[Rfam]
RNA sequence: CUGAAGGAUUGUAUCGAAGAAUCAAAUGGUGGGGUAACGCCCUUAAGGGUUCUCUCUUAGUCGAAUAGCACUUGAAUUAGUAAGAAUAAUAGUGUUAUAAGCUCGGCGAAAAGGCGUGAGAAUUUACCGUAACAGUUCGGCUGACGAAAGCCUACCCGAGGGGGUGGUGUAAAUCAUGAUGCUUGAGUUGAAUGA
Numbered sequence: 001c002u003g004a005a006g007g008a009u010u011g012u013a014u015c016g017a018a019g020a021a022u023c024a025a026a027u028g029g030u031g032g033g034g035u036a037a038c039g040c041c042c043u044u045a046a047g048g049g050u051u052c053u054c055u056c057u058u059a060g061u062c063g064a065a066u067a068g069c070a071c072u073u074g075a076a077u078u079a080g081u082a083a084g085a086a087u088a089a090u091a092g093u094g095u096u097a098u099a100a101g102c103u104c105g106g107c108g109a110a111a112a113g114g115c116g117u118g119a120g121a122a123u124u125u126a127c128c129g130u131a132a133c134a135g136u137u138c139g140g141c142u143g144a145c146g147a148a149a150g151c152c153u154a155c156c157c158g159a160g161g162g163g164g165u166g167g168u169g170u171a172a173a174u175c176a177u178g179a180u181g182c183u184u185g186a187g188u189u190g191a192a193u194g195a
Base pairs, nucleotide, nucleotide: 018053019052020051021050022049023048031043032042033041034040054187055186056185061106062105063104064103065098066097067096068095069094070093071092072091076087077086078085113183114182115181116180117179122174123173124172125171126170127169128146129145130144134142135141150168151167152166154165155164156163157162
Dot-bracket structure: .................((((((.......((((.....))))....))))))(((....((((((((((((...(((......)))...))))))))....))))......(((((....(((((((((...((.....)).)))...(((.((((....)))))))))))))....))))).)))........

The record is a 195-nucleotide RNA from Bacillus sp. HNG, which matches "Group II catalytic intron D1-D4-5" in Rfam. Group II introns are found in rRNA, tRNA and mRNA of organelles in fungi, plants and protists, and also in mRNA in bacteria. The source organism's lineage runs through Bacteria, Bacillati, Bacillota, Bacilli and Bacillus. Its family is annotated with Group II intron splicing in the Gene Ontology.